Description
Rfam assigns this 87-nucleotide sequence from Tepidibacillus fermentans to the family "c-di-GMP-I riboswitch aptamer". It scores 90 bits against the family's covariance model.
[Rfam]
RNA sequence: CAGCGAUAAAGGCAAACCCGGCGAAAGCCGGGGACGCAAAGCCACAGGUCUAAGGCAAGUGAAUGCUAGGAUGGCUGGGUUACCGAA
Number, nucleotide and partner (000 for none) at each position: 001c000002a000003g000004c000005g000006a000007u000008a000009a000010a000011g000012g037013c036014a000015a000016a000017c032018c031019c030020g029021g028022c027023g000024a000025a000026a000027g022028c021029c020030g019031g018032g017033g000034a000035c000036g013037c012038a000039a000040a081041g080042c079043c078044a000045c077046a076047g075048g072049u071050c070051u000052a000053a000054g000055g066056c065057a064058a000059g000060u000061g000062a000063a000064u057065g056066c055067u000068a000069g000070g050071a049072u048073g000074g000075c047076u046077g045078g043079g042080u041081u040082a000083c000084c000085g000086a000087a000